[Rfam]
RNA sequence: AUACUUACCUGGACGGGGUCAAUAGGCGAUCAAGAAGACGCAUGGCCUAGGGUAGUGACUUCUAUUGCACUUGGGAGGGGUGCUGUUCUAAGGUCUCCUCAAGUGGGAGAGCCUACGUCAUAAUUUGUGGUAGCGGGGGCCUGCGUUCGCGCGGCCCCUAC
Numbered sequence: 001a002u003a004c005u006u007a008c009c010u011g012g013a014c015g016g017g018g019u020c021a022a023u024a025g026g027c028g029a030u031c032a033a034g035a036a037g038a039c040g041c042a043u044g045g046c047c048u049a050g051g052g053u054a055g056u057g058a059c060u061u062c063u064a065u066u067g068c069a070c071u072u073g074g075g076a077g078g079g080g081u082g083c084u085g086u087u088c089u090a091a092g093g094u095c096u097c098c099u100c101a102a103g104u105g106g107g108a109g110a111g112c113c114u115a116c117g118u119c120a121u122a123a124u125u126u127g128u129g130g131u132a133g134c135g136g137g138g139g140c141c142u143g144c145g146u147u148c149g150c151g152c153g154g155c156c157c158c159u160a161c
Stems, first nucleotide, its partner, number of pairs: 012119004016048006023042001026039001049089003055083003059079003062075002091114003094110003098106002135159004142153004
RNA: U1 spliceosomal RNA